[Rfam]
RNA sequence: UUGUGAGGUAGAGGCGCACUUAUUUAUUAGUCCUAUGUUGAGUUUGAGGAAACGAUGAAACUGGGAGAAGGAAAUAGUGCCGAAAUGAAUAAUAACCUCAUUAUUAUUUGUUGGGUCUGUAGCGAAUAACUGCAGAACUGUCUUAAUAAGCUACCCAGUUUAUUAAGUUGUGCUAUCUCGAAU
Numbered sequence: 001u002u003g004u005g006a007g008g009u010a011g012a013g014g015c016g017c018a019c020u021u022a023u024u025u026a027u028u029a030g031u032c033c034u035a036u037g038u039u040g041a042g043u044u045u046g047a048g049g050a051a052a053c054g055a056u057g058a059a060a061c062u063g064g065g066a067g068a069a070g071g072a073a074a075u076a077g078u079g080c081c082g083a084a085a086u087g088a089a090u091a092a093u094a095a096c097c098u099c100a101u102u103a104u105u106a107u108u109u110g111u112u113g114g115g116u117c118u119g120u121a122g123c124g125a126a127u128a129a130c131u132g133c134a135g136a137a138c139u140g141u142c143u144u145a146a147u148a149a150g151c152u153a154c155c156c157a158g159u160u161u162a163u164u165a166a167g168u169u170g171u172g173c174u175a176u177c178u179c180g181a182a183u
Stems, first nucleotide, its partner, number of pairs: 006178006016080005023074003033065002037061003084112012113139002116136007142167009
This 183-nucleotide RNA sequence from Carnobacterium maltaromaticum belongs to the Rfam family "Lysine riboswitch aptamer". The source organism's lineage runs through Bacteria, Bacillati, Bacilli, Carnobacterium and Carnobacterium maltaromaticum.